Rfam assigns this 77-nucleotide RNA to the family "DUF3800-IX RNA". About the family: Actinobacteria, Firmicutes (1 example), Nitrospirae, Proteobacteria, Verrucomicrobia (1 example). The family's consensus secondary structure is taken from published work.
RNA sequence: UCCUGUCUCGCGAAAAGUGGCCUCUUGGCCGCCUGCCCCCUUCCGUUGAAGGACACGGGCUAGCGAGGCAGGUUAUU
Numbered sequence: 001u002c003c004u005g006u007c008u009c010g011c012g013a014a015a016a017g018u019g020g021c022c023u024c025u026u027g028g029c030c031g032c033c034u035g036c037c038c039c040c041u042u043c044c045g046u047u048g049a050a051g052g053a054c055a056c057g058g059g060c061u062a063g064c065g066a067g068g069c070a071g072g073u074u075a076u077u
Base pairs, nucleotide, nucleotide: 002072003071004070005069006068007067008066009065010064011063017032018031019030020029021028022027035060036059037058038057